[Rfam]
RNA sequence: CUGCACGUAGCACCUCGGGUUUCUCUGAAAUAACGAAUUGGAUGAAGAAGAAAGCCCCAAUGCUCGUGCUAAAUCAGAUCUAUUGCUGUUAAGUGUUGCAGUUCAGCCUUUUUGUACCUUUUUUUAUUGUCAUUUAUGUGUCAAAUCGACGGCUACAUAU
Numbered sequence: 001c002u003g004c005a006c007g008u009a010g011c012a013c014c015u016c017g018g019g020u021u022u023c024u025c026u027g028a029a030a031u032a033a034c035g036a037a038u039u040g041g042a043u044g045a046a047g048a049a050g051a052a053a054g055c056c057c058c059a060a061u062g063c064u065c066g067u068g069c070u071a072a073a074u075c076a077g078a079u080c081u082a083u084u085g086c087u088g089u090u091a092a093g094u095g096u097u098g099c100a101g102u103u104c105a106g107c108c109u110u111u112u113u114g115u116a117c118c119u120u121u122u123u124u125u126a127u128u129g130u131c132a133u134u135u136a137u138g139u140g141u142c143a144a145a146u147c148g149a150c151g152g153c154u155a156c157a158u159a160u
Stems, first nucleotide, its partner, number of pairs: 003069005010063002017057005022051002024048003085153006094143002097140004106131001108129001

Notes:
The record is a 160-nucleotide RNA sequence from Cynara cardunculus, which matches "small nucleolar RNA snoR134" in Rfam. Its family is annotated with nucleolus and RNA processing in the Gene Ontology. For this family Rfam cites "Mining small RNA sequencing data: a new approach to identify small nucleolar RNAs in Arabidopsis" (Chen and Wu, Nucleic Acids Res, 2009). NCBI's taxonomy places the organism under Eukaryota, Tracheophyta, Magnoliopsida, Asterales, Cynara cardunculus subsp. cardunculus. It is annotated as an H/ACA-box small nucleolar RNA. A search with the family's covariance model found it, with a score of 85 bits.